Rfam assigns this 70-nucleotide RNA from Coregonus sp. 'balchen' to the family "mir-29 microRNA precursor family". The base pairs follow the family's consensus structure, which was predicted with PFOLD. About the family: This family represents the microRNA (miRNA) precursors mir-29. The literature on the family includes a 2001 paper in Cell by Ambros, "microRNAs: tiny regulators with great potential". NCBI's taxonomy places the organism under Eukaryota, Deuterostomia, Actinopterygii, Euteleosteomorpha, Coregonus.
RNA sequence: AGAGGCUGGUUUCACAUGGUGGUUUAGAUGAAUGUUCCCAGUGUCUAGCACCAUUUGAAAUCAGUGUUCU
Number, nucleotide and partner (000 for none) at each position: 001a070002g069003a068004g067005g065006c064007u063008g062009g061010u060011u059012u058013c057014a056015c000016a054017u053018g052019g051020u050021g049022g000023u000024u000025u047026a046027g045028a044029u000030g000031a000032a000033u000034g000035u000036u000037c000038c000039c000040a000041g000042u000043g000044u028045c027046u026047a025048g000049c021050a020051c019052c018053a017054u016055u000056u014057g013058a012059a011060a010061u009062c008063a007064g006065u005066g000067u004068u003069c002070u001